[Rfam]
RNA: mir-133 microRNA precursor family
Organism: Armadillidium nasatum
Nucleotides: 073
Base pairs, nucleotide, nucleotide: 003071004070005069006068008066009065010064011063012062013061015059016058017057018056022052023051025050026049027048028047029046030045
Number, partner (000 for none) and nucleotide at each position: 001000c002000g003071g004070c005069u006068g007000g008066a009065g010064c011063u012062g013061g014000c015059u016058g017057a018056a019000a020000c021000c022052g023051g024000g025050c026049c027048a028047a029046a030045u031000u032000g033000u034000u035000u036000a037000u038000u039000u040000g041000a042000a043000g044000c045030a046029u047028u048027u049026g050025g051023u052022c053000c054000c055000c056018u057017u058016c059015a060000a061013c062012c063011a064010g065009c066008u067000g068006u069005a070004g071003u072000c073000u